[Rfam]
RNA sequence: AUAAGCUAACAACAAGCAAAAAUAUUUUCAUUUCUUUCCCUUUUUAGAAUGAAAAUCCAAAACUCCCUUUUUGGACCAAUGCGGUUUACUCCCUUUUCUCCGCAUUGGUUUUUUG
Numbered sequence: 001a002u003a004a005g006c007u008a009a010c011a012a013c014a015a016g017c018a019a020a021a022a023u024a025u026u027u028u029c030a031u032u033u034c035u036u037u038c039c040c041u042u043u044u045u046a047g048a049a050u051g052a053a054a055a056u057c058c059a060a061a062a063c064u065c066c067c068u069u070u071u072u073g074g075a076c077c078a079a080u081g082c083g084g085u086u087u088a089c090u091c092c093c094u095u096u097u098c099u100c101c102g103c104a105u106u107g108g109u110u111u112u113u114u115g
Stems, first nucleotide, its partner, number of pairs: 024056010076108009

The family of this 115-nucleotide RNA from Listeria fleischmannii is "Listeria LhrC". Pairs were carried over by alignment from the consensus structure, which is taken from published work. About the family: This RNA was identifed by screening for RNA molecules which co-immunoprecipitated with the RNA chaperone Hfq. It scores 118 bits against the family's covariance model. For this family Rfam cites "Two novel members of the LhrC family of small RNAs in Listeria monocytogenes with overlapping regulatory functions but distinctive expression profiles" (Mollerup et al., RNA Biol, 2016). The source organism's lineage runs through Bacteria, Bacilli, Caryophanales, Listeria and Listeria fleischmannii.